[Rfam]
RNA sequence: UCCCAUUGCUAAGUCAGGGCUUCUUCCUGCACACGUUGCAAAUCUCUAUGGAUGAAGUCCGUUACAGCUUUGGGAGAUCAACCUCGACCCGCCGCUUCGGACCGUUAUGGUUUUGAAGUUGGAUAUUCUCCGUCUUGGCGUUUGUCCGCAAGGGUCUGAGAAUGAUUCGUCUGAGUUGAGGGCCGUCUCCGCAACAGCGGCCUCCGUGGCGGUCCUCUUAGUUACGUUUCAUACAUGC
Numbered sequence: 001u002c003c004c005a006u007u008g009c010u011a012a013g014u015c016a017g018g019g020c021u022u023c024u025u026c027c028u029g030c031a032c033a034c035g036u037u038g039c040a041a042a043u044c045u046c047u048a049u050g051g052a053u054g055a056a057g058u059c060c061g062u063u064a065c066a067g068c069u070u071u072g073g074g075a076g077a078u079c080a081a082c083c084u085c086g087a088c089c090c091g092c093c094g095c096u097u098c099g100g101a102c103c104g105u106u107a108u109g110g111u112u113u114u115g116a117a118g119u120u121g122g123a124u125a126u127u128c129u130c131c132g133u134c135u136u137g138g139c140g141u142u143u144g145u146c147c148g149c150a151a152g153g154g155u156c157u158g159a160g161a162a163u164g165a166u167u168c169g170u171c172u173g174a175g176u177u178g179a180g181g182g183c184c185g186u187c188u189c190c191g192c193a194a195c196a197g198c199g200g201c202c203u204c205c206g207u208g209g210c211g212g213u214c215c216u217c218u219u220a221g222u223u224a225c226g227u228u229u230c231a232u233a234c235a236u237g238c
Base pairs, nucleotide, nucleotide: 003073004072005071017060018059019058020057021056022055023054025052026051028040029039030038031037084160086156087155088154089153090152094119095118096117097116098115099114100113102110103109121147122146128140130138131137132136162232163231164230165229168226169225170224178217179216180215181214184211185210186209187208190199191198192197